Shown here is a 74-nucleotide RNA sequence, a member of the family "narK RNA". The sequence is in the family's curated seed alignment. The family's consensus secondary structure is taken from published work.

Nucleotides: 074
Stems, first nucleotide, its partner, number of pairs: 030049007
Number, partner (000 for none) and nucleotide at each position: 001000g002000g003000c004000c005000c006000g007000g008000c009000u010000u011000u012000u013000g014000c015000u016000c017000u018000g019000u020000c021000u022000a023000u024000u025000g026000c027000g028000c029000a030049g031048g032047u033046a034045g035044c036043c037000a038000a039000c040000g041000g042000c043036g044035g045034u046033u047032g048031c049030c050000c051000c052000c053000a054000c055000a056000u057000a058000u059000a060000c061000g062000a063000c064000a065000a066000a067000g068000a069000c070000g071000u072000c073000g074000c